Small nucleolar RNA SNORA15: a 137-nucleotide RNA sequence from Ornithorhynchus anatinus. By type it is an H/ACA-box small nucleolar RNA. Gene Ontology terms of the family: nucleolus and RNA processing.
RNA sequence: GCAUAGACGAAUUCUGCGUUGGCUUGACUGUGGCCAGUGCAGUCAGACACUAUGCUAAAGCAUAUUCUCUCCAGAAACACUGCUCGUGGUGUGCCGGAUCCAGAGUUGGCACCAUCCCAGAGAGAACGAGAACAUGA
Numbered sequence: 001g002c003a004u005a006g007a008c009g010a011a012u013u014c015u016g017c018g019u020u021g022g023c024u025u026g027a028c029u030g031u032g033g034c035c036a037g038u039g040c041a042g043u044c045a046g047a048c049a050c051u052a053u054g055c056u057a058a059a060g061c062a063u064a065u066u067c068u069c070u071c072c073a074g075a076a077a078c079a080c081u082g083c084u085c086g087u088g089g090u091g092u093g094c095c096g097g098a099u100c101c102a103g104a105g106u107u108g109g110c111a112c113c114a115u116c117c118c119a120g121a122g123a124g125a126a127c128g129a130g131a132a133c134a135u136g137a
Stems, first nucleotide, its partner, number of pairs: 001055006014042006067130003070126001072124001084120001086118001088116003091112006